Background: The family of this 363-nucleotide RNA from Mizugakiibacter sediminis is "Bacterial RNase P class A". The family's consensus secondary structure is taken from published work. Its family is annotated with tRNA processing, ribonuclease P activity and dimeric ribonuclease P complex in the Gene Ontology. Taxonomically the source falls in Mizugakiibacter (Bacteria, Pseudomonadati, Gammaproteobacteria, Rhodanobacteraceae). A search with the family's covariance model found it, with a score of 289 bits. It is annotated as a ribozyme. Rfam's curators write: Ribonuclease P (RNase P) is a ubiquitous endoribonuclease, found in archaea, bacteria and eukarya as well as chloroplasts and mitochondria.
[Rfam]
RNA sequence: GGAGUCGGCCGGGCAGUCGCGCCGCGCGCAAGCGCGUCGAGGAAAGUCCGGGCUCCCUAGGGCAAGGUGCCAGGUAACACCUGGGCGGCGCGAGCCGACGGAAAGUGCAACAGAGAGCAGACCGCCGAUGGCCCGCAAGGGCUCAGGCAAGGGUGAAACGGUGCGGUAAGAGCGCACCGCGCGCGGGGCCAACGCCGCGCGGCACGGCAAACCCCACCUGGAGCAAGACCGAAUAGGGGAACGAUGGCGUGGCCCGCGCCGUUCCCGGGUAGGUCGCUGGAGCCGCGCGGCGACGCGCGGCCGAGAGGAAUGACUGUCGCGCCGCAAGGCGUACAGGACCCGGCUUACAGGCCGACUCCAUCC
Numbered sequence: 001g002g003a004g005u006c007g008g009c010c011g012g013g014c015a016g017u018c019g020c021g022c023c024g025c026g027c028g029c030a031a032g033c034g035c036g037u038c039g040a041g042g043a044a045a046g047u048c049c050g051g052g053c054u055c056c057c058u059a060g061g062g063c064a065a066g067g068u069g070c071c072a073g074g075u076a077a078c079a080c081c082u083g084g085g086c087g088g089c090g091c092g093a094g095c096c097g098a099c100g101g102a103a104a105g106u107g108c109a110a111c112a113g114a115g116a117g118c119a120g121a122c123c124g125c126c127g128a129u130g131g132c133c134c135g136c137a138a139g140g141g142c143u144c145a146g147g148c149a150a151g152g153g154u155g156a157a158a159c160g161g162u163g164c165g166g167u168a169a170g171a172g173c174g175c176a177c178c179g180c181g182c183g184c185g186g187g188g189c190c191a192a193c194g195c196c197g198c199g200c201g202g203c204a205c206g207g208c209a210a211a212c213c214c215c216a217c218c219u220g221g222a223g224c225a226a227g228a229c230c231g232a233a234u235a236g237g238g239g240a241a242c243g244a245u246g247g248c249g250u251g252g253c254c255c256g257c258g259c260c261g262u263u264c265c266c267g268g269g270u271a272g273g274u275c276g277c278u279g280g281a282g283c284c285g286c287g288c289g290g291c292g293a294c295g296c297g298c299g300g301c302c303g304a305g306a307g308g309a310a311u312g313a314c315u316g317u318c319g320c321g322c323c324g325c326a327a328g329g330c331g332u333a334c335a336g337g338a339c340c341c342g343g344c345u346u347a348c349a350g351g352c353c354g355a356c357u358c359c360a361u362c363c
Stems, first nucleotide, its partner, number of pairs: 001359010011348001012318007020039002023036005044346003048343005053223004060255004065219005070084005085099001086097004100214002105212002107208002122152002124148003129145002131142004160178006179203001180201005185195001187193001227275004237266006246260005282301008